[Rfam]
Rfam assigns this 82-nucleotide sequence from Erysipelotrichaceae bacterium 5_2_54FAA to the family "ZMP/ZTP riboswitch aptamer (pfl RNA motif)". The match comes from Rfam's covariance-model search (55 bits). The base pairs follow the family's consensus structure, which is taken from published work. The organism belongs to Erysipelotrichaceae, within Bacteria.
RNA sequence: AGACAGUUAUAUGACUGACGGAAGUGGAAUUGACCACAUGGAGUAUAAUGGUAAAGCAGGGCCGACCGUCUGGGCGAAAGAG
Numbered sequence: 001a002g003a004c005a006g007u008u009a010u011a012u013g014a015c016u017g018a019c020g021g022a023a024g025u026g027g028a029a030u031u032g033a034c035c036a037c038a039u040g041g042a043g044u045a046u047a048a049u050g051g052u053a054a055a056g057c058a059g060g061g062c063c064g065a066c067c068g069u070c071u072g073g074g075c076g077a078a079a080g081a082g
Base pairs, nucleotide, nucleotide: 003052004051006049007048008047009046010045011044012043015040017070018069019068020067021066024037025036026035027034061075062074063073